A member of the RNA family "Archaeal large subunit ribosomal RNA" from Vulcanisaeta moutnovskia, 403 nucleotides of a longer RNA. Gene Ontology terms of the family: ribosome and structural constituent of ribosome. The base pairs follow the family's consensus structure, which is taken from published work.

RNA sequence: GGUAGUAGCAGCGAAGAGGGGUGGGAACCCCCUCCGCCGGAAAGGACAAGGAUUCCAUGGCAACGAUAAUCAGCCAUGGGUUAGCCGGUCCUAAGGUGGGGCCUAAUUGGUACCUGCCGAAAGGGAAACGGGUUAAUAUUCCCGUGCCGUGGGGGUAGGUUUCGCGGUAACGCAAGCCCCAUCUCCGACGCCUCGGGAUAGGGUGGGCGGGGGAAUACCCCGCUUAACCGCUGAAGGCCGGGGAGUGCCGUAAUGGCGAGAACCGGCUGAAGGCGGGAAUAGCCGGGCCUUGAGCCUGGUCCACUCGACUCCUGGGGCCCAUGAAAAGGAGAUGGGGAACGAGCCUCCACGACCGUACCGAGAACCGACACAGGUGUUCCUGGGUGAGAAGCCCAAGGCGGCU
Numbered sequence: 001g002g003u004a005g006u007a008g009c010a011g012c013g014a015a016g017a018g019g020g021g022u023g024g025g026a027a028c029c030c031c032c033u034c035c036g037c038c039g040g041a042a043a044g045g046a047c048a049a050g051g052a053u054u055c056c057a058u059g060g061c062a063a064c065g066a067u068a069a070u071c072a073g074c075c076a077u078g079g080g081u082u083a084g085c086c087g088g089u090c091c092u093a094a095g096g097u098g099g100g101g102c103c104u105a106a107u108u109g110g111u112a113c114c115u116g117c118c119g120a121a122a123g124g125g126a127a128a129c130g131g132g133u134u135a136a137u138a139u140u141c142c143c144g145u146g147c148c149g150u151g152g153g154g155g156u157a158g159g160u161u162u163c164g165c166g167g168u169a170a171c172g173c174a175a176g177c178c179c180c181a182u183c184u185c186c187g188a189c190g191c192c193u194c195g196g197g198a199u200a201g202g203g204u205g206g207g208c209g210g211g212g213g214a215a216u217a218c219c220c221c222g223c224u225u226a227a228c229c230g231c232u233g234a235a236g237g238c239c240g241g242g243g244a245g246u247g248c249c250g251u252a253a254u255g256g257c258g259a260g261a262a263c264c265g266g267c268u269g270a271a272g273g274c275g276g277g278a279a280u281a282g283c284c285g286g287g288c289c290u291u292g293a294g295c296c297u298g299g300u301c302c303a304c305u306c307g308a309c310u311c312c313u314g315g316g317g318c319c320c321a322u323g324a325a326a327a328g329g330a331g332a333u334g335g336g337g338a339a340c341g342a343g344c345c346u347c348c349a350c351g352a353c354c355g356u357a358c359c360g361a362g363a364a365c366c367g368a369c370a371c372a373g374g375u376g377u378u379c380c381u382g383g384g385u386g387a388g389a390a391g392c393c394c395a396a397g398g399c400g401g402c403u
Stems, first nucleotide, its partner, number of pairs: 016034006035400004044379004050359002055079006065071001086355003090124002095118006101111003128145005148351008184330003190318009201306005206224006228276004237267005247257003288294001365374002381395004